Shown here is a 73-nucleotide sequence from Clostridium celatum, a member of the family "Fluoride riboswitch aptamer (crcB RNA motif)". A search with the family's covariance model found it, with a score of 44 bits. The source organism's lineage runs through Bacteria, Clostridia, Eubacteriales, Clostridium and Clostridium celatum.

[Rfam]
RNA sequence: UUAAACAUAGGGAAUGAAGUUCUCCCUUGAUAUCUAUCAAAAUCGCUAAUAAGCUAAUGACUUCUACAACCUU
Numbered sequence: 001u002u003a004a005a006c007a008u009a010g011g012g013a014a015u016g017a018a019g020u021u022c023u024c025c026c027u028u029g030a031u032a033u034c035u036a037u038c039a040a041a042a043u044c045g046c047u048a049a050u051a052a053g054c055u056a057a058u059g060a061c062u063u064c065u066a067c068a069a070c071c072u073u
Stems, first nucleotide, its partner, number of pairs: 010026004016064006045054003